[Rfam]
RNA sequence: AGUAUUGACCCUGACCCCUGGGACCCUAUCAGUAUUGUCUCUGCUGUCCACUGUGUCCAGAGUAGUGCAAUAUUGCUUAUAGGGUUUCAGGGCUUAGGCAGC
Numbered sequence: 001a002g003u004a005u006u007g008a009c010c011c012u013g014a015c016c017c018c019u020g021g022g023a024c025c026c027u028a029u030c031a032g033u034a035u036u037g038u039c040u041c042u043g044c045u046g047u048c049c050a051c052u053g054u055g056u057c058c059a060g061a062g063u064a065g066u067g068c069a070a071u072a073u074u075g076c077u078u079a080u081a082g083g084g085u086u087u088c089a090g091g092g093c094u095u096a097g098g099c100a101g102c
Stems, first nucleotide, its partner, number of pairs: 020088010030075009041065004045060001
mir-454 microRNA precursor family: a 102-nucleotide RNA from Clupea harengus. Taxonomically the source falls in Clupea (Eukaryota, Opisthokonta, Teleostei, Otomorpha). Its family is annotated with miRNA-mediated post-transcriptional gene silencing and RISC complex in the Gene Ontology. The base pairs follow the family's consensus structure, which was predicted with RNAalifold.